This 81-nucleotide RNA sequence from Desulfosporosinus sp. I2 belongs to the Rfam family "c-di-GMP-I riboswitch aptamer". The base pairs follow the family's consensus structure, which is taken from published work. The source organism's lineage runs through Bacteria, Bacillati, Bacillota, Eubacteriales and Desulfosporosinus.
[Rfam]
RNA sequence: AAUUUAUAAAGGCAAACCUGUCGAAAGGCAGAACGCAAAGCUAAAGGGUCUAAAGUCUUAAAGACUAUGCCAGUUGCCAUU
Numbered sequence: 001a002a003u004u005u006a007u008a009a010a011g012g013c014a015a016a017c018c019u020g021u022c023g024a025a026a027g028g029c030a031g032a033a034c035g036c037a038a039a040g041c042u043a044a045a046g047g048g049u050c051u052a053a054a055g056u057c058u059u060a061a062a063g064a065c066u067a068u069g070c071c072a073g074u075u076g077c078c079a080u081u
Base pairs, nucleotide, nucleotide: 012036013035018031019030020029021028022027039075040074041073042072046071047070050069055065056064057063058062